[Rfam]
RNA sequence: UAACGUCUUCGGGGCAGGGUGUAAUUCCCGACCGGCGGUAAAGUCCGCGAACCUAGUUGUGAUUAGGUUGAACUGGUGUAACUCCAGUACCGACAGUAAAGUCUGGAUGGUAGAAGAUAAUA
Number, nucleotide and partner (000 for none) at each position: 001u000002a000003a000004c000005g118006u117007c116008u115009u114010c113011g000012g000013g000014g000015c000016a000017g029018g028019g027020u000021g000022u000023a000024a000025u000026u000027c019028c018029c017030g000031a102032c101033c092034g091035g048036c047037g046038g045039u000040a000041a000042a000043g090044u089045c038046c037047g036048c035049g000050a000051a068052c067053c066054u000055a000056g000057u000058u000059g000060u000061g000062a000063u000064u000065a000066g053067g052068u051069u000070g000071a000072a088073c087074u086075g085076g084077u000078g000079u000080a000081a000082c000083u000084c076085c075086a074087g073088u072089a044090c043091c034092g033093a000094c105095a104096g103097u000098a000099a000100a000101g032102u031103c096104u095105g094106g000107a000108u000109g000110g000111u000112a000113g010114a009115a008116g007117a006118u005119a000120a000121u000122a000
Record summary:
The record is a 122-nucleotide RNA from Facklamia miroungae, which matches "FMN riboswitch aptamer (RFN element)" in Rfam. From the family's description: The RFN element is a highly conserved domain that is found frequently in the 5'-untranslated regions of prokaryotic mRNAs that encode for flavin mononucleotide (FMN) biosynthesis and transport proteins. This element is a metabolite-dependent riboswitch that directly binds FMN in the absence of proteins. In Bacillus subtilis, the riboswitch most likely controls gene expression by causing premature transcription termination within the 5' untranslated region of the ribDEAHT operon and precluding access to the ribosome-binding site of ypaA mRNA.The FMN riboswitch structure, reported in present an FMN-bound six-stem junction, adopts a butterfly-like scaffold, stapled together by opposingly directed but nearly identically folded peripheral domains. Pairs were carried over by alignment from the consensus structure, which is taken from published work. The match comes from Rfam's covariance-model search (120 bits).